About this RNA: This 81-nucleotide RNA sequence from Actinidia chinensis belongs to the Rfam family "mir-395 microRNA precursor family". The family has 25 seed sequences and 2,798 matches in Rfam 15.1. Its family is annotated with RISC complex and miRNA-mediated post-transcriptional gene silencing in the Gene Ontology. The source organism's lineage runs through Eukaryota, Embryophyta, Ericales, Actinidiaceae and Actinidia chinensis. On this family, see Jones-Rhoades and Bartel, Mol Cell 2004: "Computational Identification of Plant MicroRNAs and Their Targets, Including a Stress-Induced miRNA". The match comes from Rfam's covariance-model search (64 bits).
[Rfam]
RNA sequence: GUGUCCCCUGGAGUUCCCCUGAUCGCUUCACCAGGAUUACCCUUAUCCUGCUGAAGUGUUUGGGGGAACUCUCGGUGGCAC
Numbered sequence: 001g002u003g004u005c006c007c008c009u010g011g012a013g014u015u016c017c018c019c020u021g022a023u024c025g026c027u028u029c030a031c032c033a034g035g036a037u038u039a040c041c042c043u044u045a046u047c048c049u050g051c052u053g054a055a056g057u058g059u060u061u062g063g064g065g066g067a068a069c070u071c072u073c074g075g076u077g078g079c080a081c
Stems, first nucleotide, its partner, number of pairs: 005077001007075002011071010022061001024058007032050006